RNA sequence: UCCCGGAUAGCUCAGUCGGUAGAGCAAGUGACUGUUAAUCACUGGGUCGGCGGUUCGAGCCCGUCUCCGGGAG
Numbered sequence: 001u002c003c004c005g006g007a008u009a010g011c012u013c014a015g016u017c018g019g020u021a022g023a024g025c026a027a028g029u030g031a032c033u034g035u036u037a038a039u040c041a042c043u044g045g046g047u048c049g050g051c052g053g054u055u056c057g058a059g060c061c062c063g064u065c066u067c068c069g070g071g072a073g
Stems, first nucleotide, its partner, number of pairs: 001072007010025004027043005049065005
tRNA: a 73-nucleotide RNA sequence from Cardiobacterium hominis. The literature on the family includes a 1993 paper in Trends Biochem Sci by Hou, "The tertiary structure of tRNA and the development of the genetic code". Rfam links the family to the GO term triplet codon-amino acid adaptor activity. Rfam describes the family as follows. Transfer RNA (tRNA) molecules are approximately 80 nucleotides in length. By type it is a transfer RNA. The source organism's lineage runs through Bacteria, Gammaproteobacteria, Cardiobacteriales, Cardiobacteriaceae and Cardiobacterium hominis.